[Rfam]
RNA sequence: ACAACUAAAUCGAGCAUACCGUAGACAGCCGGGGCGCGCUUCACGCGCUUAAAAAUCCUGCCGAGGUAGUGAUCGUCUCCCAUCUGAGAAAGGGGAGUCUGUUCCCGGCCUUCGUCUGUCUACGAAGGCUUUUUCUAUGCUCGA
Numbered sequence: 001a002c003a004a005c006u007a008a009a010u011c012g013a014g015c016a017u018a019c020c021g022u023a024g025a026c027a028g029c030c031g032g033g034g035c036g037c038g039c040u041u042c043a044c045g046c047g048c049u050u051a052a053a054a055a056u057c058c059u060g061c062c063g064a065g066g067u068a069g070u071g072a073u074c075g076u077c078u079c080c081c082a083u084c085u086g087a088g089a090a091a092g093g094g095g096a097g098u099c100u101g102u103u104c105c106c107g108g109c110c111u112u113c114g115u116c117u118g119u120c121u122a123c124g125a126a127g128g129c130u131u132u133u134u135c136u137a138u139g140c141u142c143g144a
Stems, first nucleotide, its partner, number of pairs: 028061002031058003034048005108129008
This 144-nucleotide sequence from Melghirimyces thermohalophilus belongs to the Rfam family "Ribosomal protein L10 leader". The match comes from Rfam's covariance-model search (55 bits).